[Rfam]
RNA sequence: UCGGUUCCGGUUCACGUCCGUCGAGGGUCACACAGCAGAUCAGGUUGUGGGCUCGGGCGACCCGGGGCC
Numbered sequence: 001u002c003g004g005u006u007c008c009g010g011u012u013c014a015c016g017u018c019c020g021u022c023g024a025g026g027g028u029c030a031c032a033c034a035g036c037a038g039a040u041c042a043g044g045u046u047g048u049g050g051g052c053u054c055g056g057g058c059g060a061c062c063c064g065g066g067g068c069c
Base pairs, nucleotide, nucleotide: 003069004068005067007065008064009063010062015059016058017057018056019055020054
RNA: L31-Actinobacteria ribosomal protein leader
Organism: Nocardia vermiculata